[Rfam]
RNA sequence: UCCCAAUGCUCUUGUCAGGAUACUUCUGCUUCAUUGCCCUCUCUGGAAGAUAUCUGUUACAGCGUUGGAAAAUCAAACUUCGAGCUUGCUGCUCUCCGGUCUUCGGACUGGUGAGCUGACUGCGUUCCGUUUUGGGACGCUCUCAUAAGUUUCGCCGUGGUUCACUGAGUUGAGGUCUAUCUCUACCGCUAUUAGGUAGCUUUAUGAUAGGCUUCUUAGUUACGAGUCAUACAUUU
Numbered sequence: 001u002c003c004c005a006a007u008g009c010u011c012u013u014g015u016c017a018g019g020a021u022a023c024u025u026c027u028g029c030u031u032c033a034u035u036g037c038c039c040u041c042u043c044u045g046g047a048a049g050a051u052a053u054c055u056g057u058u059a060c061a062g063c064g065u066u067g068g069a070a071a072a073u074c075a076a077a078c079u080u081c082g083a084g085c086u087u088g089c090u091g092c093u094c095u096c097c098g099g100u101c102u103u104c105g106g107a108c109u110g111g112u113g114a115g116c117u118g119a120c121u122g123c124g125u126u127c128c129g130u131u132u133u134g135g136g137a138c139g140c141u142c143u144c145a146u147a148a149g150u151u152u153c154g155c156c157g158u159g160g161u162u163c164a165c166u167g168a169g170u171u172g173a174g175g176u177c178u179a180u181c182u183c184u185a186c187c188g189c190u191a192u193u194a195g196g197u198a199g200c201u202u203u204a205u206g207a208u209a210g211g212c213u214u215c216u217u218a219g220u221u222a223c224g225a226g227u228c229a230u231a232c233a234u235u236u
Stems, first nucleotide, its partner, number of pairs: 003068005018055005023049005029036001081154001084116008095107004117145003123139007157230004162225002172215004178209004183199005
A member of the RNA family "Small nucleolar RNA snR191" from Rosellinia necatrix, 236 nucleotides long.
Its family is annotated with nucleolus and RNA processing in the Gene Ontology.
The family's consensus secondary structure was predicted with WAR.
Its Rfam clan is "SNORA74 clan".
NCBI's taxonomy places the organism under Eukaryota, Dikarya, Xylariomycetidae, Xylariales, Rosellinia.